[Rfam]
RNA sequence: GGCUGGUCCAAAGGUAGUGAGUUAUCUCAAUUGUUCACAGUCAGUUACAGAUUGAACUCCAUGUUCUACUCUUUCCCUGCUUCUCACUGUUGUACUUGACUAAUCUUUA
Numbered sequence: 001g002g003c004u005g006g007u008c009c010a011a012a013g014g015u016a017g018u019g020a021g022u023u024a025u026c027u028c029a030a031u032u033g034u035u036c037a038c039a040g041u042c043a044g045u046u047a048c049a050g051a052u053u054g055a056a057c058u059c060c061a062u063g064u065u066c067u068a069c070u071c072u073u074u075c076c077c078u079g080c081u082u083c084u085c086a087c088u089g090u091u092g093u094a095c096u097u098g099a100c101u102a103a104u105c106u107u108u109a
Base pairs, nucleotide, nucleotide: 001105002104004102005101006100007099008098010097011096014093015092016088017087018086019085020084021083040070043067044066

A member of the RNA family "Y RNA" from Nomascus leucogenys, 109 nucleotides long. The family's consensus secondary structure is taken from published work. The source organism's lineage runs through Eukaryota, Sarcopterygii, Mammalia, Haplorrhini and Nomascus. Rfam describes the family as follows. Y RNAs are components of the Ro ribonucleoprotein particle (Ro RNP), in association with Ro60 and La proteins. The Y RNAs and Ro60 and La proteins are well conserved, but the function of the Ro RNP is not known. In humans the RNA component can be one of four small RNAs -- hY1, hY3, hY4 and hY5.